Small nucleolar RNA snoR53Y: an 80-nucleotide RNA from Tripterygium wilfordii. The base pairs follow the family's consensus structure, which was predicted with WAR. The organism belongs to Tripterygium, within Eukaryota. The family has 7 seed sequences and 513 matches in Rfam 15.1.
RNA sequence: GUUCCCGAUGAUGCAGCAUUUGAACCAUGCUAAUUCUGAUGAUCAAUGAUUGAUUUUCUUUAUAUUUUACUGAGGGAACU
Numbered sequence: 001g002u003u004c005c006c007g008a009u010g011a012u013g014c015a016g017c018a019u020u021u022g023a024a025c026c027a028u029g030c031u032a033a034u035u036c037u038g039a040u041g042a043u044c045a046a047u048g049a050u051u052g053a054u055u056u057u058c059u060u061u062a063u064a065u066u067u068u069a070c071u072g073a074g075g076g077a078a079c080u
Stems, first nucleotide, its partner, number of pairs: 001079005
Its family is annotated with nucleolus and RNA processing in the Gene Ontology.